[Rfam]
RNA sequence: GAGCAAUGAGGACGACAGUGCAUCCUAUGAUGCUGGGAGCAUCACGACCGUCUGAUUAUCGGAUAACCUCAGCGCCCCUGAGCUC
Numbered sequence: 001g002a003g004c005a006a007u008g009a010g011g012a013c014g015a016c017a018g019u020g021c022a023u024c025c026u027a028u029g030a031u032g033c034u035g036g037g038a039g040c041a042u043c044a045c046g047a048c049c050g051u052c053u054g055a056u057u058a059u060c061g062g063a064u065a066a067c068c069u070c071a072g073c074g075c076c077c078c079u080g081a082g083c084u085c
Base pairs, nucleotide, nucleotide: 001085002084003083004082
RNA: small nucleolar RNA snoR114